[Rfam]
RNA sequence: UUCUUAUUCAGAGAGGUGGAGGGAAUUGGCCCUUAGAAGCCUCGGCAGCGGACUAUUGAUAGUACUGUGCCAAAUCCAACAAGCAGGUAAGCUUGAAAAAUAAGAA
Numbered sequence: 001u002u003c004u005u006a007u008u009c010a011g012a013g014a015g016g017u018g019g020a021g022g023g024a025a026u027u028g029g030c031c032c033u034u035a036g037a038a039g040c041c042u043c044g045g046c047a048g049c050g051g052a053c054u055a056u057u058g059a060u061a062g063u064a065c066u067g068u069g070c071c072a073a074a075u076c077c078a079a080c081a082a083g084c085a086g087g088u089a090a091g092c093u094u095g096a097a098a099a100a101u102a103a104g105a106a
Stems, first nucleotide, its partner, number of pairs: 001106008013043005021032003026079004044071004049067002052063004075098001080095005
Rfam assigns this 106-nucleotide sequence from Virgibacillus pantothenticus to the family "SAM riboswitch aptamer (S box leader)". It scores 86 bits against the family's covariance model. Pairs were carried over by alignment from the consensus structure, which is taken from published work.